[Rfam]
RNA sequence: GGCGCAAGACUUGCUAACUAAACACCACAGGUAGCCAACGGCGGUUGCCCUCCACGACAAAGACGUCGC
Numbered sequence: 001g002g003c004g005c006a007a008g009a010c011u012u013g014c015u016a017a018c019u020a021a022a023c024a025c026c027a028c029a030g031g032u033a034g035c036c037a038a039c040g041g042c043g044g045u046u047g048c049c050c051u052c053c054a055c056g057a058c059a060a061a062g063a064c065g066u067c068g069c
Base pairs, nucleotide, nucleotide: 030049031048032047033046034045035044036043
A member of the RNA family "narK RNA", 69 nucleotides long.